[Rfam]
RNA sequence: UCGAAAUUUUUAAAGACUUCAACUUGCAGACUUGGAGAUUUUUAAAAACCUCAACUUGCAGAUUUGGAGAAUUUUGAAGACUUCAACU
Numbered sequence: 001u002c003g004a005a006a007u008u009u010u011u012a013a014a015g016a017c018u019u020c021a022a023c024u025u026g027c028a029g030a031c032u033u034g035g036a037g038a039u040u041u042u043u044a045a046a047a048a049c050c051u052c053a054a055c056u057u058g059c060a061g062a063u064u065u066g067g068a069g070a071a072u073u074u075u076g077a078a079g080a081c082u083u084c085a086a087c088u
Stems, first nucleotide, its partner, number of pairs: 001086001003084003009078006017069005025060004032054004037049001
A member of the RNA family "MIR8024 microRNA precursor family" from Solanum commersonii, 88 nucleotides long.
The base pairs follow the family's consensus structure, which was predicted with RNAalifold.
The family has 2 seed sequences and 661 matches in Rfam 15.1.
The match comes from Rfam's covariance-model search (66 bits).